[Rfam]
RNA: 5' ureB small RNA
Organism: Bifidobacterium callitrichos
RNA sequence: CGGUGCGGAUCUGCUGCGGGGAGAUGAAGUGGAUGUGCGUGUCGAGGCCGCCCGCCGUGACGAUCAGGCCCUCGCCGGCGAUCGCCUCGGUGCCCGAGCCGACUUCGAGGCCGGGGGUGACGCCGCUCAUCGUCUGCGGGUUGCCGGCCUUGCCAAUCGCGCUGAUUUUGCCGUUUUUCAGGCCGAUGUCGGCCUUGUAGAUGCCGGUCCAGUCGACGAUCAGCGCGUUGGUGAUGACGGUGUCGGGCGAUUCGGCGUCGAGUUGGACGCUGGACUGGCCCAUGCCGUCGCGG
Numbered sequence: 001c002g003g004u005g006c007g008g009a010u011c012u013g014c015u016g017c018g019g020g021g022a023g024a025u026g027a028a029g030u031g032g033a034u035g036u037g038c039g040u041g042u043c044g045a046g047g048c049c050g051c052c053c054g055c056c057g058u059g060a061c062g063a064u065c066a067g068g069c070c071c072u073c074g075c076c077g078g079c080g081a082u083c084g085c086c087u088c089g090g091u092g093c094c095c096g097a098g099c100c101g102a103c104u105u106c107g108a109g110g111c112c113g114g115g116g117g118u119g120a121c122g123c124c125g126c127u128c129a130u131c132g133u134c135u136g137c138g139g140g141u142u143g144c145c146g147g148c149c150u151u152g153c154c155a156a157u158c159g160c161g162c163u164g165a166u167u168u169u170g171c172c173g174u175u176u177u178u179c180a181g182g183c184c185g186a187u188g189u190c191g192g193c194c195u196u197g198u199a200g201a202u203g204c205c206g207g208u209c210c211a212g213u214c215g216a217c218g219a220u221c222a223g224c225g226c227g228u229u230g231g232u233g234a235u236g237a238c239g240g241u242g243u244c245g246g247g248c249g250a251u252u253c254g255g256c257g258u259c260g261a262g263u264u265g266g267a268c269g270c271u272g273g274a275c276u277g278g279c280c281c282a283u284g285c286c287g288u289c290g291c292g293g
Base pairs, nucleotide, nucleotide: 001293003291008289009288012164013163015161016160017159018076019075021073022072023071031052032051034050035049037048038047040045057069058068077154078153081150085146090144091143092142093140094139095138096137097135098134105129107128108127110126111125113123170279171278172277173276176274177273178272182268183266184265192226193225195223196222197221207214229260230259231258236253237252240251241250